[Rfam]
RNA sequence: AUUCUUUCACUUGGGGCAAUGACGUAACUAGUGAGGUACUAACCGAGACGCGUCUAUUACUGGUUGAAAACUAUUUCCAAACCCUCUCUUCGGCCUCGGCUCUGUCUAGGACGUUAGAGAAUUUCUGGAAGGGCUCCCUAAGGGGUAAAGCU
Numbered sequence: 001a002u003u004c005u006u007u008c009a010c011u012u013g014g015g016g017c018a019a020u021g022a023c024g025u026a027a028c029u030a031g032u033g034a035g036g037u038a039c040u041a042a043c044c045g046a047g048a049c050g051c052g053u054c055u056a057u058u059a060c061u062g063g064u065u066g067a068a069a070a071c072u073a074u075u076u077c078c079a080a081a082c083c084c085u086c087u088c089u090u091c092g093g094c095c096u097c098g099g100c101u102c103u104g105u106c107u108a109g110g111a112c113g114u115u116a117g118a119g120a121a122u123u124u125c126u127g128g129a130a131g132g133g134c135u136c137c138c139u140a141a142g143g144g145g146u147a148a149a150g151c152u
Stems, first nucleotide, its partner, number of pairs: 021054005029047001035044003086119003091113002094110003098106003132152004